[Rfam]
RNA: Small nucleolar RNA SNORD83
Organism: Pelodiscus sinensis
RNA sequence: GCCAAAUGAUGUCAACCAGAUGGCACUAGCACUGUGUGCAAAGAUGACUGACAUCUAUCACCCAGUACUGAUGGCU
Numbered sequence: 001g002c003c004a005a006a007u008g009a010u011g012u013c014a015a016c017c018a019g020a021u022g023g024c025a026c027u028a029g030c031a032c033u034g035u036g037u038g039c040a041a042a043g044a045u046g047a048c049u050g051a052c053a054u055c056u057a058u059c060a061c062c063c064a065g066u067a068c069u070g071a072u073g074g075c076u
Stems, first nucleotide, its partner, number of pairs: 001075004029039004